[Rfam]
Rfam assigns this 133-nucleotide RNA from Caenorhabditis angaria to the family "Caenorhabditis snoRNA ceN82". Rfam links the family to the GO terms nucleolus and RNA processing. It scores 99 bits against the family's covariance model. Rfam 15.1 lists 22 matches to the family in 11 species. Taxonomically the source falls in Caenorhabditis (Eukaryota, Nematoda, Rhabditida, Rhabditomorpha).
Nucleotides: 133
Stems, first nucleotide, its partner, number of pairs: 003062004015052002018048004026041004081125003084121001086116004091111001093109002096106002
Number, partner (000 for none) and nucleotide at each position: 001000g002000a003062g004061c005060u006059c007000a008000u009000u010000c011000a012000a013000a014000a015052g016051c017000a018048c019047u020046g021045g022000a023000a024000a025000u026041c027040g028039a029038u030000u031000u032000c033000a034000a035000c036000u037000u038029a039028u040027c041026g042000a043000u044000g045021c046020c047019a048018g049000c050000c051016g052015u053000c054000a055000a056000a057000u058000u059006g060005a061004g062003c063000a064000a065000u066000a067000u068000a069000a070000u071000u072000a073000u074000c075000c076000u077000g078000u079000u080000u081125u082124u083123g084121g085000g086116u087115g088114a089113g090000a091111u092000g093109c094108a095000a096106u097105u098000g099000a100000u101000u102000u103000u104000a105097g106096a107000a108094u109093g110000c111091a112000g113089c114088u115087c116086a117000a118000u119000a120000a121084c122000a123083u124082g125081a126000u127000g128000a129000c130000a131000u132000u133000c